[Rfam]
RNA: Glycine riboswitch aptamer
Organism: Falsiroseomonas stagni
RNA sequence: GGACCUCUGGAAAGCCUGCAUCCCGAACGGGGUGUGGCACCGACGGAGUAAGGCACCCCCGGAACGGGUCGGGCCGAAUCUCUCAGGUCACGGGACAGAGGGGGGCCA
Numbered sequence: 001g002g003a004c005c006u007c008u009g010g011a012a013a014g015c016c017u018g019c020a021u022c023c024c025g026a027a028c029g030g031g032g033u034g035u036g037g038c039a040c041c042g043a044c045g046g047a048g049u050a051a052g053g054c055a056c057c058c059c060c061g062g063a064a065c066g067g068g069u070c071g072g073g074c075c076g077a078a079u080c081u082c083u084c085a086g087g088u089c090a091c092g093g094g095a096c097a098g099a100g101g102g103g104g105g106c107c108a
Stems, first nucleotide, its partner, number of pairs: 004101006016037006039088003042084002046082003052075002